[Rfam]
RNA sequence: GUACUUCACCCUCCACUCGGAUCGUCCGGCACGUUCCUGCCGGUGGAAGGACACAUCA
Numbered sequence: 001g002u003a004c005u006u007c008a009c010c011c012u013c014c015a016c017u018c019g020g021a022u023c024g025u026c027c028g029g030c031a032c033g034u035u036c037c038u039g040c041c042g043g044u045g046g047a048a049g050g051a052c053a054c055a056u057c058a
Stems, first nucleotide, its partner, number of pairs: 009050002012047004026043006

Record summary: msiK RNA: a 58-nucleotide sequence from Embleya scabrispora. By type it is a cis-regulatory element.